Shown here is a 93-nucleotide sequence from Ammoniphilus sp. CFH 90114, a member of the family "c-di-GMP-I riboswitch aptamer". Pairs were carried over by alignment from the consensus structure, which is taken from published work.

RNA sequence: GUGAAAAAAAGGCAAACCUGAACGAAAGGUCAGGUACGCAAAGCUAAAGGGGCUUCGUCUAAGGAUGAGUUGACAUGCCAGCCAGCUGCCACG
Number, nucleotide and partner (000 for none) at each position: 001g000002u000003g000004a000005a000006a000007a000008a000009a000010a000011g000012g039013c038014a000015a000016a000017c034018c033019u032020g031021a030022a000023c028024g000025a000026a000027a000028g023029g000030u021031c020032a019033g018034g017035u000036a000037c000038g013039c012040a000041a000042a087043g086044c085045u084046a000047a000048a000049g083050g082051g079052g078053c077054u000055u000056c000057g000058u073059c072060u000061a070062a000063g000064g000065a000066u000067g000068a000069g000070u061071u000072g059073a058074c000075a000076u000077g053078c052079c051080a000081g000082c050083c049084a045085g044086c043087u042088g000089c000090c000091a000092c000093g000